A member of the RNA family "U11 spliceosomal RNA" from Coptotermes formosanus, 130 nucleotides long. Taxonomically the source falls in Coptotermes (Eukaryota, Mandibulata, Blattodea, Coptotermitinae). Rfam links the family to the GO terms mRNA 5'-splice site recognition, U11 snRNP and pre-mRNA 5'-splice site binding. The literature on the family includes a 1988 paper in Proc Natl Acad Sci U S A by Montzka and Steitz, "Additional low-abundance human small nuclear ribonucleoproteins: U11, U12, etc". A search with the family's covariance model found it, with a score of 92 bits.
RNA sequence: AAAAAGGGUGUUUGCUGCUUUGAUAGCACGUAGAUCGUAAAGGUCUAUGGGGUAUGGCGAUCAAGACAUACUCAACACGUAAUUUUUGUUUUCGUGGGGCAGUUGGCUGUCUAUGAACACCGACGCCCCC
Dot-bracket structure: .......((((((((((......)))))((((((((.....))))))))(((((((..........))))))))))))..................((((.(((((.((((...).))))))))))))..